The family of this 79-nucleotide sequence from Priestia megaterium is "ZMP/ZTP riboswitch aptamer (pfl RNA motif)".
[Rfam]
RNA sequence: AAGACUAUGUGUGACUGGCGAAACGCGGAUAACCGUGAGGAAGCAUAUAGUGACGUAGCCGUUCGCCUGGGCAGAGGUA
Numbered sequence: 001a002a003g004a005c006u007a008u009g010u011g012u013g014a015c016u017g018g019c020g021a022a023a024c025g026c027g028g029a030u031a032a033c034c035g036u037g038a039g040g041a042a043g044c045a046u047a048u049a050g051u052g053a054c055g056u057a058g059c060c061g062u063u064c065g066c067c068u069g070g071g072c073a074g075a076g077g078u079a
Stems, first nucleotide, its partner, number of pairs: 004051009015040002017067005025036004056074001058072003